[Rfam]
RNA sequence: CCCCAAUAUUCUUUGUCAGGACACUUUCUCGCCACAAUUCAUUGGUGCCUUUUAUGGGAGACGUCUGUUACAAUAUUGGGAGAUCAAACAUCCGAGCUUGCUGUCUUCUUGGUCUUUGGAUCAACAGGGCUGAUUUGGUCCCGUCUUGGGACCGGUCAUUAGCGAGGGCCGUGUUUCAUUUUUGAGUUGAGCUCCAUCUCUGCCCACUGGGGCAGCUUUGUGAUGGUUCUCUUAGUAAUGAUUCAUACAUAA
Numbered sequence: 001c002c003c004c005a006a007u008a009u010u011c012u013u014u015g016u017c018a019g020g021a022c023a024c025u026u027u028c029u030c031g032c033c034a035c036a037a038u039u040c041a042u043u044g045g046u047g048c049c050u051u052u053u054a055u056g057g058g059a060g061a062c063g064u065c066u067g068u069u070a071c072a073a074u075a076u077u078g079g080g081a082g083a084u085c086a087a088a089c090a091u092c093c094g095a096g097c098u099u100g101c102u103g104u105c106u107u108c109u110u111g112g113u114c115u116u117u118g119g120a121u122c123a124a125c126a127g128g129g130c131u132g133a134u135u136u137g138g139u140c141c142c143g144u145c146u147u148g149g150g151a152c153c154g155g156u157c158a159u160u161a162g163c164g165a166g167g168g169c170c171g172u173g174u175u176u177c178a179u180u181u182u183u184g185a186g187u188u189g190a191g192c193u194c195c196a197u198c199u200c201u202g203c204c205c206a207c208u209g210g211g212g213c214a215g216c217u218u219u220g221u222g223a224u225g226g227u228u229c230u231c232u233u234a235g236u237a238a239u240g241a242u243u244c245a246u247a248c249a250u251a252a
Base pairs, nucleotide, nucleotide: 003079004078005077006076007075019066020065021064022063025060026059027058028057030047031046032045033044034043091168092167093166098124099123100122102120104118129163130162131161132160133159137153138152139151140150141149142148143147171246172245173244176241177240178239179238189231190230191229195225196224197223198222200215201214202213203212204211205210
The family of this 252-nucleotide sequence from Microdochium trichocladiopsis is "Small nucleolar RNA snR191". It is annotated as an H/ACA-box small nucleolar RNA. The literature on the family includes a 2003 paper in RNA by Badis et al., "A snoRNA that guides the two most conserved pseudouridine modifications within rRNA confers a growth advantage in yeast". It scores 62 bits against the family's covariance model. Clan: SNORA74 clan. The organism belongs to Microdochium, within Eukaryota.